[Rfam]
RNA: Small nucleolar RNA SNORA74
RNA sequence: UCCAGCAGUAGUCAGCUGUCUGGACAGAACCAUUCCUGUGAUGGUGUUACACUGCUGGGAGAGCAAUGUCUUGUCUUCUUUAUCCAGUUGCCUGUGUCAUUGUUCUAGUGGCCCAUGGUGCUGGUGCAAGGCAGAACUGUGCUUCCUUGAGAGUGUGCUAAGCAUUUGCUUUAGAUGCUUAGUUCUAGUCUGGGAGCAGACAAA
Numbered sequence: 001u002c003c004a005g006c007a008g009u010a011g012u013c014a015g016c017u018g019u020c021u022g023g024a025c026a027g028a029a030c031c032a033u034u035c036c037u038g039u040g041a042u043g044g045u046g047u048u049a050c051a052c053u054g055c056u057g058g059g060a061g062a063g064c065a066a067u068g069u070c071u072u073g074u075c076u077u078c079u080u081u082a083u084c085c086a087g088u089u090g091c092c093u094g095u096g097u098c099a100u101u102g103u104u105c106u107a108g109u110g111g112c113c114c115a116u117g118g119u120g121c122u123g124g125u126g127c128a129a130g131g132c133a134g135a136a137c138u139g140u141g142c143u144u145c146c147u148u149g150a151g152a153g154u155g156u157g158c159u160a161a162g163c164a165u166u167u168g169c170u171u172u173a174g175a176u177g178c179u180u181a182g183u184u185c186u187a188g189u190c191u192g193g194g195a196g197c198a199g200a201c202a203a204a
Base pairs, nucleotide, nucleotide: 001059002058003057004056005055006054007053008052009051011050012049015045016044017043018042019041020040021038022036023035024034068137069136071134072133073132074131075130076129083126085124089120090119091118092117094114096112098110099109100108101107140198141197142196143195144194145193146192155185157183159181160180161179162178163177164176165175